[Rfam]
RNA sequence: UGUUGUCGGGAUCGCCCCCUGCCAGCGAUAUUCGCCCGCAGGGGCAUUUGUG
Numbered sequence: 001u002g003u004u005g006u007c008g009g010g011a012u013c014g015c016c017c018c019c020u021g022c023c024a025g026c027g028a029u030a031u032u033c034g035c036c037c038g039c040a041g042g043g044g045c046a047u048u049u050g051u052g
Base pairs, nucleotide, nucleotide: 016044017043018042019041020040021039022038025035026034027033028032
RNA: ffh sRNA
Organism: Halocynthiibacter styelae